[Rfam]
RNA sequence: GCUUGUUCUCAGGGCAGGGUGAAAUUCCCGACCGGCGGUAACUUUUAGAUACAGUAUGUAGAAAAAAGAAGCCCGCGAGCGCCCUUGGCUUCAGGAUCAUUUCGGAUCCAGAAAUCAAGGGGUCAGCAGAUCUGGUGAAAUUCCAGAGCCGACGGUAACAGUCCGGAUGGGAGAGGAUAGGC
Dot-bracket structure: ..((((((((......(((.......))).[[((((((................................[[))))..((.............................................))...(((((.......)))))]])).(((.....]]))).......))))))))..

FMN riboswitch aptamer (RFN element): a 182-nucleotide RNA sequence from Kiloniella litopenaei. NCBI's taxonomy places the organism under Bacteria, Pseudomonadati, Rhodospirillales, Kiloniellaceae, Kiloniella. The match comes from Rfam's covariance-model search (110 bits). The base pairs follow the family's consensus structure, which is taken from published work. The RFN element is a highly conserved domain that is found frequently in the 5'-untranslated regions of prokaryotic mRNAs that encode for flavin mononucleotide (FMN) biosynthesis and transport proteins.